The record is a 172-nucleotide RNA from Chara braunii, which matches "U2 spliceosomal RNA" in Rfam. The family has 208 seed sequences and 71,512 matches in Rfam 15.1.

[Rfam]
RNA sequence: AUAGAUUCACAUUCAUUCAUCAGUUUAAUAUCUGAUCUGUGGUCCAUCGGGCCACACGAUAUUAAAUUAUUUUUUCAGGGCUACGGAGGGGUCAUAGGGGUAGGCUUGCCUACUCGACCCUUCCACCUUUGCCUUCGUAUUGCACUGCAGCGGAGCGUCGCGCGGCCCAUUU
Numbered sequence: 001a002u003a004g005a006u007u008c009a010c011a012u013u014c015a016u017u018c019a020u021c022a023g024u025u026u027a028a029u030a031u032c033u034g035a036u037c038u039g040u041g042g043u044c045c046a047u048c049g050g051g052c053c054a055c056a057c058g059a060u061a062u063u064a065a066a067u068u069a070u071u072u073u074u075u076c077a078g079g080g081c082u083a084c085g086g087a088g089g090g091g092u093c094a095u096a097g098g099g100g101u102a103g104g105c106u107u108g109c110c111u112a113c114u115c116g117a118c119c120c121u122u123c124c125a126c127c128u129u130u131g132c133c134u135u136c137g138u139a140u141u142g143c144a145c146u147g148c149a150g151c152g153g154a155g156c157g158u159c160g161c162g163c164g165g166c167c168c169a170u171u172u
Base pairs, nucleotide, nucleotide: 019036020035021034022033023032039055040054041053042052043051044050045049085124086123087122088121089120090119091118092117101112102111103110104109127165128164130162131161132160133155134154135153136152137151138150
By type it is a spliceosomal small nuclear RNA. From the family's description: U2 is a small nuclear RNA (snRNA) component of the spliceosome (involved in pre-mRNA splicing). The organism belongs to Chara, within Eukaryota.